The family of this 82-nucleotide RNA from Peptacetobacter hominis is "ZMP/ZTP riboswitch aptamer (pfl RNA motif)". The organism belongs to Peptacetobacter, within Bacteria.
[Rfam]
RNA sequence: ACAGGAUUCUGUGACUGACGGGACGUGAAAUAACACGAUUGGAGCAGAAUCUUAUAUAAAGCCGACCGUCUGGGCAGUGCGA
Numbered sequence: 001a002c003a004g005g006a007u008u009c010u011g012u013g014a015c016u017g018a019c020g021g022g023a024c025g026u027g028a029a030a031u032a033a034c035a036c037g038a039u040u041g042g043a044g045c046a047g048a049a050u051c052u053u054a055u056a057u058a059a060a061g062c063c064g065a066c067c068g069u070c071u072g073g074g075c076a077g078u079g080c081g082a
Stems, first nucleotide, its partner, number of pairs: 003053010015041001017070005025036003061075003
Rfam links the family to the GO terms regulation of purine nucleotide biosynthetic process and one-carbon metabolic process. It scores 50 bits against the family's covariance model.